[Rfam]
Notes: A member of the RNA family "mir-135 microRNA precursor family" from Oncorhynchus kisutch, 86 nucleotides long. Rfam 15.1 lists 2,125 matches to the family in 647 species. A reference for the family is Kim et al. (2004), "Identification of many microRNAs that copurify with polyribosomes in mammalian neurons", Proc Natl Acad Sci U S A. NCBI's taxonomy places the organism under Eukaryota, Opisthokonta, Bilateria, Gnathostomata, Oncorhynchus.
RNA sequence: UCGCUACUGUUUUCUAUGGCUUUCUAUUCCUAUGUGAUUUUUUUCUACUGUCACAUAGGGUCCAAAGUCAUUGGGUACAGAGUGGA
Numbered sequence: 001u002c003g004c005u006a007c008u009g010u011u012u013u014c015u016a017u018g019g020c021u022u023u024c025u026a027u028u029c030c031u032a033u034g035u036g037a038u039u040u041u042u043u044u045c046u047a048c049u050g051u052c053a054c055a056u057a058g059g060g061u062c063c064a065a066a067g068u069c070a071u072u073g074g075g076u077a078c079a080g081a082g083u084g085g086a
Stems, first nucleotide, its partner, number of pairs: 002085001005082001007080004012075003016071008028060010